[Rfam]
Description: The record is a 169-nucleotide sequence from Mycobacterium triviale, which matches "M-box riboswitch aptamer (ykoK leader)" in Rfam. Rfam describes the family as follows. M-box riboswitch, also know as ykoK leader is described as a metaloregulatory RNA that sense divalent metals and function as a genetic control element of genes related to divalent metal transport in bacteria. It was first reported upstream of the B.subtilis ykoK gene and genes with related functions in other bacteria. Lineage of the source: Bacteria > Bacillati > Actinomycetes > Mycobacteriaceae > Mycobacterium (subgen. Mycolicibacillus). Pairs were carried over by alignment from the consensus structure. Gene Ontology terms of the family: response to magnesium ion and regulation of gene expression.
RNA sequence: CAAGCACCUCGUUAAGCGAGGCGUCUGCACGGACAUAGGCCACUGACCUCUAACGUCGAGAGACGGCCAAGGUCAGGACAGCUCCUCCCGGCUUAAGGGUUGAGCCCAAGUGGCUUCCGGUUCCCGGACACGCCGUGCAGUGCCAAAGCCCGAACGAGUGGGGUGCGGU
Number, nucleotide and partner (000 for none) at each position: 001c000002a000003a000004g000005c165006a164007c163008c162009u161010c160011g155012u154013u096014a000015a000016g149017c148018g000019a000020g144021g143022c142023g000024u000025c140026u139027g138028c137029a136030c135031g134032g133033a000034c000035a000036u000037a000038g000039g114040c113041c112042a111043c110044u000045g074046a073047c072048c071049u070050c000051u000052a000053a000054c065055g064056u063057c062058g000059a000060g000061a000062g057063a056064c055065g054066g000067c000068c000069a000070a049071g048072g047073u046074c045075a000076g000077g000078a000079c000080a000081g105082c104083u103084c102085c000086u000087c099088c098089c097090g000091g000092c000093u000094u000095a000096a013097g089098g088099g087100u000101u000102g084103a083104g082105c081106c000107c000108a000109a000110g043111u042112g041113g040114c039115u000116u128117c127118c126119g000120g000121u000122u000123c000124c000125c000126g118127g117128a116129c000130a000131c000132g000133c032134c031135g030136u029137g028138c027139a026140g025141u000142g022143c021144c020145a000146a000147a000148g017149c016150c000151c000152g000153a000154a012155c011156g000157a000158g000159u000160g010161g009162g008163g007164u006165g005166c000167g000168g000169u000